A member of the RNA family "mir-9193 microRNA precursor family" from Cnephaeus nilssonii, 125 nucleotides long.
The base pairs follow the family's consensus structure, which was predicted with RNAalifold.
Its family is annotated with miRNA-mediated post-transcriptional gene silencing and RISC complex in the Gene Ontology.
Lineage of the source: Eukaryota > Teleostomi > Sarcopterygii > Chiroptera > Cnephaeus.
It scores 55 bits against the family's covariance model.

[Rfam]
RNA sequence: CAUGCACCAGUGGGGUCCCUCAGCCUGGCCUGAGCCCUCUCACAAUCUGGGACCCCUUGGGGGAUGUCAGAGAGCCGGUUUCAGCUCUAUCCCAAGGCCAGGCUGAGGGACCCCACUGGUGCAAA
Numbered sequence: 001c002a003u004g005c006a007c008c009a010g011u012g013g014g015g016u017c018c019c020u021c022a023g024c025c026u027g028g029c030c031u032g033a034g035c036c037c038u039c040u041c042a043c044a045a046u047c048u049g050g051g052a053c054c055c056c057u058u059g060g061g062g063g064a065u066g067u068c069a070g071a072g073a074g075c076c077g078g079u080u081u082c083a084g085c086u087c088u089a090u091c092c093c094a095a096g097g098c099c100a101g102g103c104u105g106a107g108g109g110a111c112c113c114c115a116c117u118g119g120u121g122c123a124a125a
Stems, first nucleotide, its partner, number of pairs: 003123002006120001008118003012114014027099005